[Rfam]
RNA sequence: UCCAUCGUGAGGUGGAAUCUGAAGGAAGCCCAAGACAAAGUCCCGGUCCGAUGAACAAGAACCAGAUACAAGGCUAAGUGGAGUGGACGAGUUUGCCUAACAAAACGAAGUCCAACAGCUAUCCAGAACUUCACGGAGUAGAUCUGGCGGAUAUAUGGGAUGAAAGUUAUUGCA
Numbered sequence: 001u002c003c004a005u006c007g008u009g010a011g012g013u014g015g016a017a018u019c020u021g022a023a024g025g026a027a028g029c030c031c032a033a034g035a036c037a038a039a040g041u042c043c044c045g046g047u048c049c050g051a052u053g054a055a056c057a058a059g060a061a062c063c064a065g066a067u068a069c070a071a072g073g074c075u076a077a078g079u080g081g082a083g084u085g086g087a088c089g090a091g092u093u094u095g096c097c098u099a100a101c102a103a104a105a106c107g108a109a110g111u112c113c114a115a116c117a118g119c120u121a122u123c124c125a126g127a128a129c130u131u132c133a134c135g136g137a138g139u140a141g142a143u144c145u146g147g148c149g150g151a152u153a154u155a156u157g158g159g160a161u162g163a164a165a166g167u168u169a170u171u172g173c174a
Stems, first nucleotide, its partner, number of pairs: 001016006030172001032170001035167002040161006046152005062147006073139003078134006085113004091106004